About this RNA:
Shown here is a 47-nucleotide RNA, a member of the family "eL15-Euryarchaeota ribosomal protein leader". It is one of the family's seed sequences.
RNA sequence: CGGACAAACAUGUCCGUAGGGAUGUGGCCGAGAGGCUGAACCAUAAA
Dot-bracket structure: (((((......)))))..((.....((((....))))...)).....
Numbered sequence: 001c002g003g004a005c006a007a008a009c010a011u012g013u014c015c016g017u018a019g020g021g022a023u024g025u026g027g028c029c030g031a032g033a034g035g036c037u038g039a040a041c042c043a044u045a046a047a
Stems, first nucleotide, its partner, number of pairs: 001016005019042002026037004